[Rfam]
Description:
Shown here is a 92-nucleotide RNA sequence from Accipiter nisus, a member of the family "Small nucleolar SNORD12/SNORD106". Rfam classes the family as a C/D-box small nucleolar RNA. The family's consensus secondary structure was predicted with RNAalifold. Its Rfam clan is "SNORD12 clan". On this family, see Huttenhofer et al., EMBO J 2001: "RNomics: an experimental approach that identifies 201 candidates for novel, small, non-messenger RNAs in mouse".
RNA sequence: GCUGGUGUAAGCGAUGACUGAAUUUUCUCCCCACCAGAGCGACAAGUGUUGAAUUCUCGCUGUUCAAGCCGGAUCGCGUCUGAUGCACCAGC
Numbered sequence: 001g002c003u004g005g006u007g008u009a010a011g012c013g014a015u016g017a018c019u020g021a022a023u024u025u026u027c028u029c030c031c032c033a034c035c036a037g038a039g040c041g042a043c044a045a046g047u048g049u050u051g052a053a054u055u056c057u058c059g060c061u062g063u064u065c066a067a068g069c070c071g072g073a074u075c076g077c078g079u080c081u082g083a084u085g086c087a088c089c090a091g092c
Base pairs, nucleotide, nucleotide: 001092002091003090004089005088006087007086008085009084